RNA: Streptomyces RNA 5676
RNA sequence: AGAUGAGAGAGACACCCCGUCCACAGGGGACUGCGGACGGUUCCGGAUCGUGGCCUCCCCAGCCGCGUUCCGGCUGUGCCCUCGCGCACACAUCCGGAGCUUUCGGCUCCGGAACUCCUCACCGAUCGGA
Numbered sequence: 001a002g003a004u005g006a007g008a009g010a011g012a013c014a015c016c017c018c019g020u021c022c023a024c025a026g027g028g029g030a031c032u033g034c035g036g037a038c039g040g041u042u043c044c045g046g047a048u049c050g051u052g053g054c055c056u057c058c059c060c061a062g063c064c065g066c067g068u069u070c071c072g073g074c075u076g077u078g079c080c081c082u083c084g085c086g087c088a089c090a091c092a093u094c095c096g097g098a099g100c101u102u103u104c105g106g107c108u109c110c111g112g113a114a115c116u117c118c119u120c121a122c123c124g125a126u127c128g129g130a
Base pairs, nucleotide, nucleotide: 004121005120006119007118009117010116017040018039019038020037021036022035024033025032026031043073044072045071046070047069049067050066051065052064053063054062076089077088078087079086093113094112095111096110097109098108099107100106122129123128